[Rfam]
RNA sequence: AGAUGUGGAUGAUGAAAUCACAAGUGAAAAUACAGUUAUCCCUGUCUGAUUCCUUCAUAAGGGUGCUGAGAAUACUUUAAUCUGACACAGUU
Numbered sequence: 001a002g003a004u005g006u007g008g009a010u011g012a013u014g015a016a017a018u019c020a021c022a023a024g025u026g027a028a029a030a031u032a033c034a035g036u037u038a039u040c041c042c043u044g045u046c047u048g049a050u051u052c053c054u055u056c057a058u059a060a061g062g063g064u065g066c067u068g069a070g071a072a073u074a075c076u077u078u079a080a081u082c083u084g085a086c087a088c089a090g091u092u
Stems, first nucleotide, its partner, number of pairs: 001092002004089004
Rfam assigns this 92-nucleotide sequence to the family "Small nucleolar RNA R38". The family has 19 seed sequences and 2,295 matches in Rfam 15.1. The family's consensus secondary structure was predicted with PFOLD. The sequence is in the family's curated seed alignment. About the family: snoR38 is a C/D box small nucleolar RNA conserved across yeast, human, Arabidopsis and rice. It is encoded in the intron of elongation factor-1 gamma in both pombe and cerevisiae. snoR38 guides the methylation of 2'-O-ribose sites in 28S rRNA.